[Rfam]
Shown here is a 46-nucleotide sequence from Cyclonatronum proteinivorum, a member of the family "Acido-Lenti-1 RNA". A search with the family's covariance model found it, with a score of 38 bits.
RNA sequence: CCCGGGGGUGGCACCCCGGGCUGUGGUAUUUCGCUCUUUCAGGGCU
Numbered sequence: 001c002c003c004g005g006g007g008g009u010g011g012c013a014c015c016c017c018g019g020g021c022u023g024u025g026g027u028a029u030u031u032c033g034c035u036c037u038u039u040c041a042g043g044g045c046u
Stems, first nucleotide, its partner, number of pairs: 001020007033045005

The family's RNA type in Rfam is small RNA. Lineage of the source: Bacteria > Pseudomonadati > Balneolales > Cyclonatronaceae > Cyclonatronum. The family has 87 seed sequences and 2,607 matches in Rfam 15.1.